[Rfam]
RNA: Pyrrolysine insertion sequence mttB
RNA sequence: UUGCCGACGCCAAAACGCCCGAUGCGCAGCUAGGCUCUGAAAAAACCAUGACCACCUUGCUUGCUGCCAUGUCAGGUUCAAAUUAUAUUCACCAUAGCGCAG
Numbered sequence: 001u002u003g004c005c006g007a008c009g010c011c012a013a014a015a016c017g018c019c020c021g022a023u024g025c026g027c028a029g030c031u032a033g034g035c036u037c038u039g040a041a042a043a044a045a046c047c048a049u050g051a052c053c054a055c056c057u058u059g060c061u062u063g064c065u066g067c068c069a070u071g072u073c074a075g076g077u078u079c080a081a082a083u084u085a086u087a088u089u090c091a092c093c094a095u096a097g098c099g100c101a102g
Base pairs, nucleotide, nucleotide: 003011024031032061033060076100079097